[Rfam]
RNA sequence: AACGCAUGAGACCGGUGUUCGCCCGCCAGCAUUUUUGUUGGCAGCGAUCUGAGAUAUACGGUCUGAACUUGAUCAGGUUAAAGCCUGCGAAAGGACUCAUGCUUUGCAUUCC
Numbered sequence: 001a002a003c004g005c006a007u008g009a010g011a012c013c014g015g016u017g018u019u020c021g022c023c024c025g026c027c028a029g030c031a032u033u034u035u036u037g038u039u040g041g042c043a044g045c046g047a048u049c050u051g052a053g054a055u056a057u058a059c060g061g062u063c064u065g066a067a068c069u070u071g072a073u074c075a076g077g078u079u080a081a082a083g084c085c086u087g088c089g090a091a092a093g094g095a096c097u098c099a100u101g102c103u104u105u106g107c108a109u110u111c112c
Base pairs, nucleotide, nucleotide: 006100007099008098009097010096011062012061013060014059016056017049019047020046021045068093069092070091074087075086076085077084
TPP riboswitch aptamer (THI element): a 112-nucleotide RNA. Rfam describes the family as follows. Vitamin B(1) in its active form thiamin pyrophosphate (TPP) is an essential coenzyme that is synthesised by coupling of pyrimidine and thiazole moieties in bacteria.